[Rfam]
The family of this 66-nucleotide RNA from Candidatus Syntrophocurvum alkaliphilum is "DUF3800-VIII RNA". Lineage of the source: Bacteria > Bacillati > Bacillota > Syntrophomonadaceae > Candidatus Syntrophocurvum. It scores 66 bits against the family's covariance model.
RNA sequence: AUAACUCUGUCGAUCCGAAGUCUUAAGUGCCUACUUGAGAUACUUAUGUAGGAAAGAUGGGGUUUU
Numbered sequence: 001a002u003a004a005c006u007c008u009g010u011c012g013a014u015c016c017g018a019a020g021u022c023u024u025a026a027g028u029g030c031c032u033a034c035u036u037g038a039g040a041u042a043c044u045u046a047u048g049u050a051g052g053a054a055a056g057a058u059g060g061g062g063u064u065u066u
Stems, first nucleotide, its partner, number of pairs: 001066001003064009014053003020041009
Pairs were carried over by alignment from the consensus structure, which is taken from published work.